Rfam assigns this 107-nucleotide RNA sequence from Bacillus sp. T33-2 to the family "TPP riboswitch aptamer (THI element)". Pairs were carried over by alignment from the consensus structure, which is taken from published work.

RNA sequence: UAUUACCACAGGGGGAGCUGCUUUUUGCAGCUGAGAGUGAGCGUUCGAGUUCUGACCCUUUGAACCUGUUAGUUAAUUCUAGCGUAGGAAUGUGGAUUCGAUUGGAA
Numbered sequence: 001u002a003u004u005a006c007c008a009c010a011g012g013g014g015g016a017g018c019u020g021c022u023u024u025u026u027g028c029a030g031c032u033g034a035g036a037g038u039g040a041g042c043g044u045u046c047g048a049g050u051u052c053u054g055a056c057c058c059u060u061u062g063a064a065c066c067u068g069u070u071a072g073u074u075a076a077u078u079c080u081a082g083c084g085u086a087g088g089a090a091u092g093u094g095g096a097u098u099c100g101a102u103u104g105g106a107a
Stems, first nucleotide, its partner, number of pairs: 006095005011059004016053001017031005039052004065088004069082004